6S / SsrS RNA: a 184-nucleotide sequence from Oceanobacillus piezotolerans. The base pairs follow the family's consensus structure, which is taken from published work.

RNA sequence: UUGAUCCUGAUAUGUUCGUUUGUUGCUCGUUAUUUGACCGAACACUUUUAAAAAAGGGAGCUUGAAGUUUUUAUAGUGCAUGCAAGCCACUUUCUAAAGUGGAAGCAUUAUACCUAUAAAACAGAGCACCCACCUGCCAUAAGCGGGAUCAAAACAGAAAUCAAACGGCAUAAUCGGGAUUUUG
Numbered sequence: 001u002u003g004a005u006c007c008u009g010a011u012a013u014g015u016u017c018g019u020u021u022g023u024u025g026c027u028c029g030u031u032a033u034u035u036g037a038c039c040g041a042a043c044a045c046u047u048u049u050a051a052a053a054a055a056g057g058g059a060g061c062u063u064g065a066a067g068u069u070u071u072u073a074u075a076g077u078g079c080a081u082g083c084a085a086g087c088c089a090c091u092u093u094c095u096a097a098a099g100u101g102g103a104a105g106c107a108u109u110a111u112a113c114c115u116a117u118a119a120a121a122c123a124g125a126g127c128a129c130c131c132a133c134c135u136g137c138c139a140u141a142a143g144c145g146g147g148a149u150c151a152a153a154a155c156a157g158a159a160a161u162c163a164a165a166c167g168g169c170a171u172a173a174u175c176g177g178g179a180u181u182u183u184g
Stems, first nucleotide, its partner, number of pairs: 003181009012171004017167003033154002035151003038147002056131003060127004070120007082106002087102005